[Rfam]
Rfam assigns this 201-nucleotide sequence from Oryza barthii to the family "MIR812 microRNA precursor family". Rfam 15.1 lists 57,451 matches to the family in 24 species. A search with the family's covariance model found it, with a score of 116 bits. Taxonomically the source falls in Oryza (Eukaryota, Spermatophyta, Petrosaviidae, Oryzinae).
RNA sequence: UUAAAGUGCAAUGAUUUUUUGUGCCCAAUUUUAAUCGUCUGUUUUAUUUAAAAAAAAUUAAAAAAAUAAAAAUAUAAGUAGUCAUGCAUAAAGUACUAUUUAUAUUUUAUCAUCUCAUAACAAUACAAAUACUAAUUAUAAAAAAUUUUAAAUAAAACAAACAAUUAAAGUUGGACACGAAAACUCAUGGAUACACUUAAC
Numbered sequence: 001u002u003a004a005a006g007u008g009c010a011a012u013g014a015u016u017u018u019u020u021g022u023g024c025c026c027a028a029u030u031u032u033a034a035u036c037g038u039c040u041g042u043u044u045u046a047u048u049u050a051a052a053a054a055a056a057a058u059u060a061a062a063a064a065a066a067u068a069a070a071a072a073u074a075u076a077a078g079u080a081g082u083c084a085u086g087c088a089u090a091a092a093g094u095a096c097u098a099u100u101u102a103u104a105u106u107u108u109a110u111c112a113u114c115u116c117a118u119a120a121c122a123a124u125a126c127a128a129a130u131a132c133u134a135a136u137u138a139u140a141a142a143a144a145a146u147u148u149u150a151a152a153u154a155a156a157a158c159a160a161a162c163a164a165u166u167a168a169a170g171u172u173g174g175a176c177a178c179g180a181a182a183a184c185u186c187a188u189g190g191a192u193a194c195a196c197u198u199a200a201c
Stems, first nucleotide, its partner, number of pairs: 025174011037162002040159008